Rfam assigns this 84-nucleotide sequence from Lentivirus humimdef1 to the family "HIV gag stem loop 3 (GSL3)".
For this family Rfam cites "RNA interactions in the 5' region of the HIV-1 genome" (Damgaard et al., J Mol Biol, 2004).
The family's RNA type in Rfam is cis-regulatory element.
It is one of the family's seed sequences.
The family's consensus secondary structure was predicted with PFOLD.
The source organism's lineage runs through Viruses, Pararnavirae, Ortervirales, Retroviridae and Lentivirus humimdef1.
Rfam's curators write: This family consists of several HIV gag stem loop 3 (GSL3) sequences.
Its family is annotated with viral RNA genome packaging in the Gene Ontology.
RNA sequence: GGCCGGGGGGAAAGAACUUAUAUAGGAUGAACCAUUUAGUAUGGGCAAGCAGAGAGUUAGAAAGAUUCGCACUUAACCCUGAAC
Numbered sequence: 001g002g003c004c005g006g007g008g009g010g011a012a013a014g015a016a017c018u019u020a021u022a023u024a025g026g027a028u029g030a031a032c033c034a035u036u037u038a039g040u041a042u043g044g045g046c047a048a049g050c051a052g053a054g055a056g057u058u059a060g061a062a063a064g065a066u067u068c069g070c071a072c073u074u075a076a077c078c079c080u081g082a083a084c
Stems, first nucleotide, its partner, number of pairs: 001084001004081005